[Rfam]
RNA sequence: CCGUCCCACGCCGUGGGACGGCCGUCACGGGAAGGUGUCCGGCGGUUACCCUGACCCGGUGCGCCUUCGUACUGGAAGACGCAAAGCCGACAGCCGUCGCAACCACGGGAGCAGCUCCAUG
Numbered sequence: 001c002c003g004u005c006c007c008a009c010g011c012c013g014u015g016g017g018a019c020g021g022c023c024g025u026c027a028c029g030g031g032a033a034g035g036u037g038u039c040c041g042g043c044g045g046u047u048a049c050c051c052u053g054a055c056c057c058g059g060u061g062c063g064c065c066u067u068c069g070u071a072c073u074g075g076a077a078g079a080c081g082c083a084a085a086g087c088c089g090a091c092a093g094c095c096g097u098c099g100c101a102a103c104c105a106c107g108g109g110a111g112c113a114g115c116u117c118c119a120u121g
Stems, first nucleotide, its partner, number of pairs: 060083004065078004086100002089098003
RNA: Streptomyces-metH RNA
Organism: Streptomyces sp. Ru73